This 92-nucleotide RNA from Pelotomaculum schinkii belongs to the Rfam family "c-di-GMP-I riboswitch aptamer". Taxonomically the source falls in Pelotomaculum (Bacteria, Bacillati, Bacillota, Desulfotomaculaceae). The family's consensus secondary structure is taken from published work. The match comes from Rfam's covariance-model search (54 bits).
[Rfam]
RNA sequence: GUUGUUUAAGGGCAAACCACUCCGAAAGGGUGGGACGCAAAGCUAAGACUCUUAUCAGUUAUGUUUACUGGUGUGAUUGUCUGGCUACAAGA
Numbered sequence: 001g002u003u004g005u006u007u008a009a010g011g012g013c014a015a016a017c018c019a020c021u022c023c024g025a026a027a028g029g030g031u032g033g034g035a036c037g038c039a040a041a042g043c044u045a046a047g048a049c050u051c052u053u054a055u056c057a058g059u060u061a062u063g064u065u066u067a068c069u070g071g072u073g074u075g076a077u078u079g080u081c082u083g084g085c086u087a088c089a090a091g092a
Stems, first nucleotide, its partner, number of pairs: 012038002017033004022029002041086004046082003050076002056071001058069001